[Rfam]
RNA sequence: GGAUCGAUGAUGAUUCCAAAAAAAAAACACCAAACCAACAUUCCUUGGAAAAUCUGAACAAAAUGAGUGAGAACUACAACAACAUCGUUCUCAUUCGGUUACUGAGGUCC
Dot-bracket structure: (((((.................................(((((.(((...........)))...)))))....................................)))))
A member of the RNA family "Small nucleolar RNA SNORD116" from Pipistrellus kuhlii, 110 nucleotides long. A reference for the family is Cavaille et al. (2000), "Identification of brain-specific and imprinted small nucleolar RNA genes exhibiting an unusual genomic organization", Proc Natl Acad Sci U S A. The match comes from Rfam's covariance-model search (70 bits). The family's consensus secondary structure was predicted with PFOLD.